[Rfam]
RNA sequence: AUCCAUUAGUUUGUUCAGAGUCUAAAAUACUCAAAUAUUGUUGUGUUGUCAUCAACUUCAUCUCUUGUUUUUCCCUGAGCUGGGAGUUAUAUAACAACACUAAAUUA
Numbered sequence: 001a002u003c004c005a006u007u008a009g010u011u012u013g014u015u016c017a018g019a020g021u022c023u024a025a026a027a028u029a030c031u032c033a034a035a036u037a038u039u040g041u042u043g044u045g046u047u048g049u050c051a052u053c054a055a056c057u058u059c060a061u062c063u064c065u066u067g068u069u070u071u072u073c074c075c076u077g078a079g080c081u082g083g084g085a086g087u088u089a090u091a092u093a094a095c096a097a098c099a100c101u102a103a104a105u106u107a
Stems, first nucleotide, its partner, number of pairs: 043100006054088006062079003